A member of the RNA family "mir-2290 microRNA precursor family" from Lipotes vexillifer, 80 nucleotides long. A search with the family's covariance model found it, with a score of 73 bits. The base pairs follow the family's consensus structure, which was predicted with RNAalifold. Its family is annotated with miRNA-mediated post-transcriptional gene silencing and RISC complex in the Gene Ontology. Lineage of the source: Eukaryota > Craniata > Boreoeutheria > Cetacea > Lipotes.
RNA sequence: CGCGCCGCCAUGCCGCGAAGCGAGGCGCUGGGGAGCGCUUCAGCACUGCCUCUGGCGGUUGGUUUGUGGAUGGGGGCAGG
Numbered sequence: 001c002g003c004g005c006c007g008c009c010a011u012g013c014c015g016c017g018a019a020g021c022g023a024g025g026c027g028c029u030g031g032g033g034a035g036c037g038c039u040u041c042a043g044c045a046c047u048g049c050c051u052c053u054g055g056c057g058g059u060u061g062g063u064u065u066g067u068g069g070a071u072g073g074g075g076g077c078a079g080g
Stems, first nucleotide, its partner, number of pairs: 001080001004077003008073004013068001017064002023060002026057008035049002037044002